A member of the RNA family "Enterobacteria rnk leader" from Klebsiella michiganensis, 108 nucleotides long. Pairs were carried over by alignment from the consensus structure, which is taken from published work.

[Rfam]
RNA sequence: UAUGGUUCGUUGAUGAAUGUGCGUUUAAUCACUUCAAACCACCAGCAAGUCUCAGUAUGAUGAGAGGACAUUAACCCUUGCCAUUUUCGGUGAGGGUUUUCUUUUACG
Dot-bracket structure: ..............(((.(((........)))))).....................................((((((((((......))))))))))..........